[Rfam]
RNA sequence: UCGAAGCUCCAUAGGCAAAUGGAUAAGACUUUUGUCUUAUUGUAAAUGUAUAGGAGUUUUUGAACGAAAAAAGGAGCAAUAACGCCCUCUUCAUAAAACAAGAGGGAAGCUAUUGCUCCUUU
Number, nucleotide and partner (000 for none) at each position: 001u000002c000003g000004a000005a000006g000007c000008u023009c022010c021011a020012u019013a000014g000015g000016c000017a000018a000019a012020u011021g010022g009023a008024u000025a000026a000027g000028a000029c000030u000031u000032u000033u000034g000035u000036c000037u000038u000039a000040u000041u000042g000043u000044a000045a000046a000047u000048g000049u000050a000051u000052a000053g000054g000055a000056g000057u000058u000059u000060u000061u000062g000063a000064a000065c000066g000067a000068a000069a000070a122071a121072a120073g119074g118075a117076g116077c115078a114079a113080u112081a111082a000083c000084g000085c106086c000087c104088u103089c102090u101091u100092c000093a000094u000095a000096a000097a000098a000099c000100a091101a090102g089103a088104g087105g000106g085107a000108a000109g000110c000111u081112a080113u079114u078115g077116c076117u075118c074119c073120u072121u071122u070

Description:
Rfam assigns this 122-nucleotide RNA from Lactuca sativa to the family "Plastid-psbA-1 3UTR RNA". It scores 95 bits against the family's covariance model. About the family: Plastid psbA-1 is a non-coding RNA (ncRNA) present in plastids. It was identified in inverted repeat sequences in the 3 prime untranslate region (3UTR) of photosystem II quinone-binding protein (psbA). It is annotated as a cis-regulatory element. Clan: Plastid-psbA 3UTR RNA clan.